[Rfam]
RNA sequence: GUUUCCUUUAACUGCAGUCCAGAGAGGCUGAGAAGGUAAAUAGACGACAUGUUAGAGAAUAUCUCUAUAUUCUUUAGGAUGGUUAUUGAAUCUAUCUCAUCACCCUCUCGCUUCUACUGCGGGAGGGUUUUUUAUU
Numbered sequence: 001g002u003u004u005c006c007u008u009u010a011a012c013u014g015c016a017g018u019c020c021a022g023a024g025a026g027g028c029u030g031a032g033a034a035g036g037u038a039a040a041u042a043g044a045c046g047a048c049a050u051g052u053u054a055g056a057g058a059a060u061a062u063c064u065c066u067a068u069a070u071u072c073u074u075u076a077g078g079a080u081g082g083u084u085a086u087u088g089a090a091u092c093u094a095u096c097u098c099a100u101c102a103c104c105c106u107c108u109c110g111c112u113u114c115u116a117c118u119g120c121g122g123g124a125g126g127g128u129u130u131u132u133u134a135u136u
Base pairs, nucleotide, nucleotide: 003038005036006035007034008033009032015030016029017028018027019026048081049080050079052077053076054075055074056073057072058071059070060069061068099131102128103127104126105125106124107123108122109121110120111119